[Rfam]
RNA sequence: GAGUUAGUGUCGUGAGCAGAGCUUAAGCUUGAGUGUGUAGGCGUAGCGAAAGCGAGUCUUAAAAGGGCGUUUAGUUCGCGGCAUUAAACCCGAAACCGAGUGAUCUAACCAUGAGCAGGCUGAGGGCUGGCUAACGCCGGCUGGAGGGCCGAACCCGUGUCUGUUGCAAAAGGCUGGGAUGACUUGUGGUUAGGGGUGAAAGGCUAAUCAAACUCGGAGAUAGCUGGUU
Numbered sequence: 001g002a003g004u005u006a007g008u009g010u011c012g013u014g015a016g017c018a019g020a021g022c023u024u025a026a027g028c029u030u031g032a033g034u035g036u037g038u039a040g041g042c043g044u045a046g047c048g049a050a051a052g053c054g055a056g057u058c059u060u061a062a063a064a065g066g067g068c069g070u071u072u073a074g075u076u077c078g079c080g081g082c083a084u085u086a087a088a089c090c091c092g093a094a095a096c097c098g099a100g101u102g103a104u105c106u107a108a109c110c111a112u113g114a115g116c117a118g119g120c121u122g123a124g125g126g127c128u129g130g131c132u133a134a135c136g137c138c139g140g141c142u143g144g145a146g147g148g149c150c151g152a153a154c155c156c157g158u159g160u161c162u163g164u165u166g167c168a169a170a171a172g173g174c175u176g177g178g179a180u181g182a183c184u185u186g187u188g189g190u191u192a193g194g195g196g197u198g199a200a201a202g203g204c205u206a207a208u209c210a211a212a213c214u215c216g217g218a219g220a221u222a223g224c225u226g227g228u229u
Stems, first nucleotide, its partner, number of pairs: 005086013021042004027036002046053002056068004089227002092224001096217006105193011116181001118150004125142007154178003159174004195205003
Background: The family of this 229-nucleotide part of an RNA from Candidatus Hodgkinia cicadicola is "Bacterial large subunit ribosomal RNA". The sequence is in the family's curated seed alignment. The family's consensus secondary structure is taken from published work.